[Rfam]
RNA: U7 small nuclear RNA
Organism: Muraenolepis orangiensis
RNA sequence: CAGGAAUUUAGCUCUUUAAAAUUUAUCCAGAAGGAUCCCUAGUAAAUAGGGAUCCCAC
Dot-bracket structure: ................................(((((((((.....)))))))))...